[Rfam]
RNA: Singlet oxygen resistance RNA X
Organism: Sulfitobacter guttiformis
RNA sequence: AAACGAUGAAUGGCUGGGACGAGUGCCAUUCUACCUCCCUGUUGGACUUGGCCGGGCCUCUGUGCCCGGUCUUUUUU
Numbered sequence: 001a002a003a004c005g006a007u008g009a010a011u012g013g014c015u016g017g018g019a020c021g022a023g024u025g026c027c028a029u030u031c032u033a034c035c036u037c038c039c040u041g042u043u044g045g046a047c048u049u050g051g052c053c054g055g056g057c058c059u060c061u062g063u064g065c066c067c068g069g070u071c072u073u074u075u076u077u
Base pairs, nucleotide, nucleotide: 008031009030010029011028012027013026014025050071051070052069053068054067055066056065057064